[Rfam]
RNA: ffh sRNA
RNA sequence: GACGCCGGAGGCCAACGCCCGACAGCGCUGUGCGCCCUCGGGCGUAAACGUG
Dot-bracket structure: ...............(((((((..((((...))))..)))))))........
Numbered sequence: 001g002a003c004g005c006c007g008g009a010g011g012c013c014a015a016c017g018c019c020c021g022a023c024a025g026c027g028c029u030g031u032g033c034g035c036c037c038u039c040g041g042g043c044g045u046a047a048a049c050g051u052g
Stems, first nucleotide, its partner, number of pairs: 016044007025035004